[Rfam]
RNA sequence: GUUAAGAGGAAUGUUGUAUGGCUCGAGGUCAUGAAGAAAAUUCUUUUGCCUAAUCGUAAAAGAAUGAAAACAAAUCAUAAUUGAUCCUCGGACCAGGCUUCAUUCCCCUCAAC
Numbered sequence: 001g002u003u004a005a006g007a008g009g010a011a012u013g014u015u016g017u018a019u020g021g022c023u024c025g026a027g028g029u030c031a032u033g034a035a036g037a038a039a040a041u042u043c044u045u046u047u048g049c050c051u052a053a054u055c056g057u058a059a060a061a062g063a064a065u066g067a068a069a070a071c072a073a074a075u076c077a078u079a080a081u082u083g084a085u086c087c088u089c090g091g092a093c094c095a096g097g098c099u100u101c102a103u104u105c106c107c108c109u110c111a112a113c
Stems, first nucleotide, its partner, number of pairs: 001113003005109002008106006016098002019095003024090003
Background: The family of this 113-nucleotide RNA from Eutrema salsugineum is "mir-166 microRNA precursor family". Pairs were carried over by alignment from the consensus structure, which was predicted with PFOLD. For this family Rfam cites "MicroRNAs in plants" (Reinhart et al., Genes Dev, 2002). NCBI's taxonomy places the organism under Eukaryota, Embryophyta, Euphyllophyta, Eutremeae, Eutrema. The match comes from Rfam's covariance-model search (82 bits). Rfam's curators write: This family represents the plant microRNA (miRNA) precursor mir-166.